[Rfam]
RNA: Methylophilales-1 RNA
RNA sequence: GGUUAGUGCAGUGAAUCAGGCAGUAAGCUUGUGCGAACAAGCCGAUGAGUCGUCAUUGACCUGGUGUGACGCUGCCGCUAUAGAUCAGGCGCACUAACA
Numbered sequence: 001g002g003u004u005a006g007u008g009c010a011g012u013g014a015a016u017c018a019g020g021c022a023g024u025a026a027g028c029u030u031g032u033g034c035g036a037a038c039a040a041g042c043c044g045a046u047g048a049g050u051c052g053u054c055a056u057u058g059a060c061c062u063g064g065u066g067u068g069a070c071g072c073u074g075c076c077g078c079u080a081u082a083g084a085u086c087a088g089g090c091g092c093a094c095u096a097a098c099a
Stems, first nucleotide, its partner, number of pairs: 002098008019076004027042006047072001049070004054066005